Shown here is a 157-nucleotide RNA sequence, a member of the family "RT-3 RNA". Pairs were carried over by alignment from the consensus structure, which is taken from published work.
RNA sequence: AAUCGGCGUACGAUAAGGAGUACGAGUUACUCAUCAUUGAGCCGAGGGGGAUGAGCCUCAGUAACAGCAGUCGGAAGACUGGAAAACUGAAACAUACAUCGUUGGGUAGAGUUUGGUAGGUUUCCCUUUAUUGGGAUUCUCGAAGAAGUUAGGCCCG
Number, nucleotide and partner (000 for none) at each position: 001a000002a000003u045004c044005g043006g042007c041008g000009u000010a000011c039012g038013a037014u036015a000016a000017g000018g032019a031020g030021u029022a028023c000024g000025a000026g000027u000028u022029a021030c020031u019032c018033a000034u000035c000036a014037u013038u012039g011040a000041g007042c006043c005044g004045a003046g000047g057048g056049g000050g000051a000052u000053g000054a000055g000056c048057c047058u090059c089060a088061g087062u086063a000064a000065c000066a000067g000068c081069a080070g079071u078072c077073g000074g000075a000076a000077g072078a071079c070080u069081g068082g000083a000084a000085a000086a062087c061088u060089g059090a058091a000092a000093c000094a000095u000096a000097c000098a000099u000100c000101g000102u000103u157104g156105g155106g154107u153108a000109g150110a149111g000112u147113u146114u145115g000116g000117u000118a000119g140120g139121u000122u000123u136124c135125c134126c000127u000128u000129u000130a000131u000132u000133g000134g125135g124136a123137u000138u000139c120140u119141c000142g000143a000144a000145g114146a113147a112148g000149u110150u109151a000152g000153g107154c106155c105156c104157g103